RNA sequence: GAAGCAUGGUUGAAACAAGAUUUAUCAUGAGAAGUCAGCAGAGGUCAUAGUACCAGAGCAGUCAUGAAUGCUCUAGGAAGGAC
Number, nucleotide and partner (000 for none) at each position: 001g022002a021003a000004g000005c019006a000007u017008g016009g000010u014011u000012g000013a000014a010015a000016c008017a007018a000019g005020a000021u002022u001023u000024a000025u000026c000027a000028u000029g000030a000031g000032a000033a000034g000035u042036c041037a000038g000039c000040a000041g036042a035043g000044g083045u082046c081047a000048u000049a000050g000051u000052a000053c076054c000055a074056g073057a072058g071059c000060a000061g000062u000063c000064a000065u000066g000067a000068a000069u000070g000071c058072u057073c056074u055075a000076g053077g000078a000079a000080g000081g046082a045083c044
Rfam assigns this 83-nucleotide RNA sequence from Thermotalea metallivorans to the family "Group II catalytic intron D1-D4-1". Lineage of the source: Bacteria > Clostridia > Peptostreptococcales > Thermotaleaceae > Thermotalea. It scores 50 bits against the family's covariance model. Rfam describes the family as follows. Group II introns are found in rRNA, tRNA and mRNA of organelles in fungi, plants and protists, and also in mRNA in bacteria. Gene Ontology term of the family: Group II intron splicing.